A member of the RNA family "BsrG" from Effusibacillus lacus, 254 nucleotides long. bsrE, bsrG and bsrH pair through intermolecular interactions with antisense sRNAs. They form type I toxin/antitoxin system that includes an mRNA encoding for a short, toxic peptide (bsrE, bsrG and bsrH) and an antitoxin that is comprised of an antisense RNA. bsrG encodes a 39-amino-acid toxin, and the 180 nucleotide antisense sRNA called SR4 acts as the antitoxin (they overlap by 123 nucleotides). SR4 interaction with the 3'UTR of bsrG RNA promotes bsrG degradation and inhibits its translation. BsrG interferes with cell envelope biosynthesis, causes membrane invaginations and delocalisation of the cell wall synthesis and initiates autolysis. bsrE RNA encodes 30 amino-acid toxin peptide. Its antitoxin gene, SR5 overlaps by 112 nucleotides at the 3' end of bsrE. SR5 also overlaps bsrG from nucleotide 163 to 52 (Rfam overlap check). The antitoxin SR5 promotes bsrE degradation but unlike SR4 it does not directly inhibits toxin mRNA translation. The source organism's lineage runs through Bacteria, Bacillati, Bacilli, Alicyclobacillaceae and Effusibacillus. The literature on the family includes a 2016 paper in J Biol Chem by Meissner et al., "In Vitro Characterization of the Type I Toxin-Antitoxin System bsrE/SR5 from Bacillus subtilis". By type it is a small RNA.
[Rfam]
RNA sequence: UACAAUAGAAUCGGCUUGCAAGGGUGGUCGGCUAAUCCCCCGGAGAGGGGGUGAUGCCCGUGGAGGUAUAUCAAGCAUUAUCCUUGAUGAUCAUGUUCGCCAUGUUCGUCUUGGCUCUGCUUAACUUCCUUAAAAGGAAAUAGACCGCCCUUGGCAUAGGGAAGCGGUCUAUUUCAGUAGGCCAAACCUAGUAUGGCCGAUCACCCUUUAGGGCAAUCUAUUGUACUGACCGUAGGUGUGUCGCAGCGCCUGCG
Numbered sequence: 001u002a003c004a005a006u007a008g009a010a011u012c013g014g015c016u017u018g019c020a021a022g023g024g025u026g027g028u029c030g031g032c033u034a035a036u037c038c039c040c041c042g043g044a045g046a047g048g049g050g051g052u053g054a055u056g057c058c059c060g061u062g063g064a065g066g067u068a069u070a071u072c073a074a075g076c077a078u079u080a081u082c083c084u085u086g087a088u089g090a091u092c093a094u095g096u097u098c099g100c101c102a103u104g105u106u107c108g109u110c111u112u113g114g115c116u117c118u119g120c121u122u123a124a125c126u127u128c129c130u131u132a133a134a135a136g137g138a139a140a141u142a143g144a145c146c147g148c149c150c151u152u153g154g155c156a157u158a159g160g161g162a163a164g165c166g167g168u169c170u171a172u173u174u175c176a177g178u179a180g181g182c183c184a185a186a187c188c189u190a191g192u193a194u195g196g197c198c199g200a201u202c203a204c205c206c207u208u209u210a211g212g213g214c215a216a217u218c219u220a221u222u223g224u225a226c227u228g229a230c231c232g233u234a235g236g237u238g239u240g241u242c243g244c245a246g247c248g249c250c251u252g253c254g
Stems, first nucleotide, its partner, number of pairs: 001225005007219003011215001012199005019153006026145001028143001033054001035052001037051005064122005076089002099116001101114001166183006204213003231254009